Small nucleolar RNA SNORA47: a 133-nucleotide RNA from Triplophysa rosa. The base pairs follow the family's consensus structure, which was predicted with WAR. Lineage of the source: Eukaryota > Eumetazoa > Clupeocephala > Cypriniformes > Triplophysa. The family has 20 seed sequences and 733 matches in Rfam 15.1. On this family, see Huttenhofer et al., EMBO J 2001: "RNomics: an experimental approach that identifies 201 candidates for novel, small, non-messenger RNAs in mouse". Rfam links the family to the GO terms RNA processing and nucleolus. Rfam classes the family as an H/ACA-box small nucleolar RNA.

RNA sequence: UGGAGGAUUGAGAAAGUUAAGCAGAAUGUUACUGUACUGCGUUAACUGGUUAUAACCUCCUAGAAAAAUGACAAGUUUUGCUUUGCCUUGUAUUUUCCUUUACUAGUGUCAUUGCAAUACUUGUCUACAGUUU
Number, nucleotide and partner (000 for none) at each position: 001u000002g060003g059004a058005g057006g056007a000008u000009u000010g000011a000012g000013a000014a000015a047016g046017u045018u044019a042020a000021g040022c039023a038024g037025a000026a000027u000028g000029u000030u000031a000032c000033u000034g000035u000036a000037c024038u023039g022040c021041g000042u019043u000044a018045a017046c016047u015048g000049g000050u000051u000052a000053u000054a000055a000056c006057c005058u004059c003060c002061u000062a000063g000064a000065a000066a000067a000068a000069u000070g000071a000072c000073a000074a000075g125076u000077u123078u000079u000080g120081c000082u000083u117084u116085g000086c000087c000088u000089u000090g112091u111092a000093u000094u108095u000096u000097c106098c000099u000100u000101u000102a000103c000104u000105a000106g097107u000108g094109u000110c000111a091112u090113u000114g000115c000116a084117a083118u000119a000120c080121u000122u000123g077124u000125c075126u000127a000128c000129a000130g000131u000132u000133u000

Background: It scores 60 bits against the family's covariance model.